mir-3689 microRNA precursor family: a 72-nucleotide sequence from Pongo abelii. The family's consensus secondary structure was predicted with RNAalifold. The organism belongs to Pongo, within Eukaryota. Its family is annotated with miRNA-mediated post-transcriptional gene silencing and RISC complex in the Gene Ontology. The family has 7 seed sequences and 117 matches in Rfam 15.1.
[Rfam]
RNA sequence: GGGAGGUGUGAUCCCGUGAUCCCUGGGACGUGUGAUCCCGUGAUCCCUGGGACGUGUGAUCCCGUGCUCCCU
Dot-bracket structure: (((((.........((((...((((((...((((....))))...))))))...))))........))))).